[Rfam]
RNA sequence: GGGUUCAGUUCGGUAGCCGAACUGGAGGUCUCUGGAUGGUCGGGCCGCCAUUC
Numbered sequence: 001g002g003g004u005u006c007a008g009u010u011c012g013g014u015a016g017c018c019g020a021a022c023u024g025g026a027g028g029u030c031u032c033u034g035g036a037u038g039g040u041c042g043g044g045c046c047g048c049c050a051u052u053c
Base pairs, nucleotide, nucleotide: 005025006024007023008022009021010020011019012018034053035052036051037050038049039048040047
The record is a 53-nucleotide RNA sequence, which matches "nhaA-I RNA" in Rfam. From the family's description: Acidobacteria, Alphaproteobacteria, Betaproteobacteria and Gammaproteobacteria, Verrucomicrobia, cand. division NC10. Rfam classes the family as a riboswitch. It is one of the family's seed sequences.